[Rfam]
RNA sequence: UUGACCUUUUAAUGACUGUCCAGAGAGGCAGGGAAAGGUUCGUUUGCCAACUGUUCACUAUAAAAUGUGAACAGUCAUUUGAGGCAAGCAACACGAACCUUUCCGAACAUUCGGGAAGGUUUUUAUCUU
Number, nucleotide and partner (000 for none) at each position: 001u000002u000003g040004a039005c038006c037007u036008u035009u034010u000011a000012a000013u000014g000015a000016c031017u030018g029019u028020c027021c000022a000023g000024a000025g000026a000027g020028g019029c018030a017031g016032g000033g000034a009035a008036a007037g006038g005039u004040u003041c000042g000043u000044u000045u000046g000047c000048c000049a000050a075051c074052u073053g072054u071055u070056c069057a068058c067059u000060a000061u000062a000063a000064a000065a000066u000067g058068u057069g056070a055071a054072c053073a052074g051075u050076c000077a000078u000079u000080u000081g000082a000083g000084g000085c000086a000087a000088g000089c000090a000091a000092c000093a124094c000095g122096a121097a120098c119099c118100u117101u116102u115103c114104c113105g112106a111107a000108c000109a000110u000111u106112c105113g104114g103115g102116a101117a100118g099119g098120u097121u096122u095123u000124u093125a000126u000127c000128u000129u000
The record is a 129-nucleotide RNA from Sporosarcina sp. HYO08, which matches "PyrR binding site" in Rfam. The match comes from Rfam's covariance-model search (61 bits). Pairs were carried over by alignment from the consensus structure, which is taken from published work. From the family's description: This family represents the PyrR binding site and terminator structure. This RNA structure is found upstream of a variety of genes involved in pyrimidine biosynthesis and transport. The alignment also includes a portion of the antiterminator structure.